Rfam assigns this 204-nucleotide RNA from Trinickia caryophylli to the family "Burkholderia sRNA 11". Rfam links the family to the GO term bacterial biofilm matrix. The source organism's lineage runs through Bacteria, Pseudomonadati, Burkholderiales, Burkholderiaceae and Trinickia. Rfam's curators write: Identified by RNA-seq, RACE and Northern blot. Strongly expressed in biofilm. Identified in as ncRNA13.
RNA sequence: UCCCUUCCGUGACGGAGGUGUCCGUCUCGGACUCAGGCGGCUGCUCUCAUAGCAAGCCGGAUAGGGCGUGAUGGUGCGGUCCGUGGAGAACACGGCCGCCGGUAUCGCGGUCUCCCGCUACCCCGAUGGCGAGCGAGUCCGCCGCCCGAAGGCGCCGCGUGCGCAUGAAAAAAGGCCCUCGUCCGGCGAUGAGGGCCUUUUAUU
Numbered sequence: 001u002c003c004c005u006u007c008c009g010u011g012a013c014g015g016a017g018g019u020g021u022c023c024g025u026c027u028c029g030g031a032c033u034c035a036g037g038c039g040g041c042u043g044c045u046c047u048c049a050u051a052g053c054a055a056g057c058c059g060g061a062u063a064g065g066g067c068g069u070g071a072u073g074g075u076g077c078g079g080u081c082c083g084u085g086g087a088g089a090a091c092a093c094g095g096c097c098g099c100c101g102g103u104a105u106c107g108c109g110g111u112c113u114c115c116c117g118c119u120a121c122c123c124c125g126a127u128g129g130c131g132a133g134c135g136a137g138u139c140c141g142c143c144g145c146c147c148g149a150a151g152g153c154g155c156c157g158c159g160u161g162c163g164c165a166u167g168a169a170a171a172a173a174g175g176c177c178c179u180c181g182u183c184c185g186g187c188g189a190u191g192a193g194g195g196c197c198u199u200u201u202a203u204u
Stems, first nucleotide, its partner, number of pairs: 002037002006031004013024003038059004042054004064147004073103001075101001076099001081095005107142003112137003116131004152164004170201014
It is annotated as a small RNA.
The base pairs follow the family's consensus structure, which was predicted with RNAfold.
The literature on the family includes a 2017 paper in Sci Rep by Sass et al., "Identification of small RNAs abundant in Burkholderia cenocepacia biofilms reveal putative regulators with a potential role in carbon and iron metabolism".
It scores 128 bits against the family's covariance model.